Overview: A member of the RNA family "Mason-Pfizer monkey virus packaging signal" from Nannospalax galili, 281 nucleotides long. The organism belongs to Nannospalax, within Eukaryota. By type it is a cis-regulatory element. Rfam 15.1 lists 2,921 matches to the family in 53 species.
RNA sequence: UGGCGCCCAAUGUGGGGCUUGGAUACUGGGGGCAACGUGAGGGAGACGAUGGAAAAAGGAAGGAGUGCACUCAUUAAAUCUCAAGCAAUUCGGAGACGCGCUGCAGGAGCCUGCCACGACCGAACUGAAGGUAAGUCAAGCCGUCUGAAUCAUGGGGCAAGAAUUAAGCCAGCAUCAGAUUUAUGUUAUACAGUUAAGUGAAGCCCUCAAGGCAAGAGGAGUAAAGGUUAAGACUGAGGAUUUAUUUCAUUUCUUUGAUUUUGUAAAGGACAUUUGUUCCU
Numbered sequence: 001u002g003g004c005g006c007c008c009a010a011u012g013u014g015g016g017g018c019u020u021g022g023a024u025a026c027u028g029g030g031g032g033c034a035a036c037g038u039g040a041g042g043g044a045g046a047c048g049a050u051g052g053a054a055a056a057a058g059g060a061a062g063g064a065g066u067g068c069a070c071u072c073a074u075u076a077a078a079u080c081u082c083a084a085g086c087a088a089u090u091c092g093g094a095g096a097c098g099c100g101c102u103g104c105a106g107g108a109g110c111c112u113g114c115c116a117c118g119a120c121c122g123a124a125c126u127g128a129a130g131g132u133a134a135g136u137c138a139a140g141c142c143g144u145c146u147g148a149a150u151c152a153u154g155g156g157g158c159a160a161g162a163a164u165u166a167a168g169c170c171a172g173c174a175u176c177a178g179a180u181u182u183a184u185g186u187u188a189u190a191c192a193g194u195u196a197a198g199u200g201a202a203g204c205c206c207u208c209a210a211g212g213c214a215a216g217a218g219g220a221g222u223a224a225a226g227g228u229u230a231a232g233a234c235u236g237a238g239g240a241u242u243u244a245u246u247u248c249a250u251u252u253c254u255u256u257g258a259u260u261u262u263g264u265a266a267a268g269g270a271c272a273u274u275u276g277u278u279c280c281u
Base pairs, nucleotide, nucleotide: 006031007030008029012026013025014024036048037047038046085132086131090128091127097122098121102118103117106114140158141157144156145155146154147153166207168204169203216256217255218254219253220252221251225243226242227241228240229239266281268279269278270277271276